RNA sequence: AACCCUAGGCUAUGCCUAGGGUUCCGGAAAGCUUUCAGCGAUGUAUCAAAAAAGCCUCUCUUCUGCUAAGAUAAAUUUUGGUUCGCCAACCAAAUUAAUAAGCCAAGGAGAG
Numbered sequence: 001a002a003c004c005c006u007a008g009g010c011u012a013u014g015c016c017u018a019g020g021g022u023u024c025c026g027g028a029a030a031g032c033u034u035u036c037a038g039c040g041a042u043g044u045a046u047c048a049a050a051a052a053a054g055c056c057u058c059u060c061u062u063c064u065g066c067u068a069a070g071a072u073a074a075a076u077u078u079u080g081g082u083u084c085g086c087c088a089a090c091c092a093a094a095u096u097a098a099u100a101a102g103c104c105a106a107g108g109a110g111a112g
Base pairs, nucleotide, nucleotide: 001023002022003021004020005019006018007017008016009015010014028042031039032038033037058112059111060110061109062108063107065103066102067101071099072098075096077094078093079092080091081090082089

Rfam assigns this 112-nucleotide sequence from Sporolactobacillus putidus to the family "STnc490 Hfq binding RNA". It scores 57 bits against the family's covariance model. Lineage of the source: Bacteria > Bacillota > Bacilli > Caryophanales > Sporolactobacillus. The family's RNA type in Rfam is small RNA.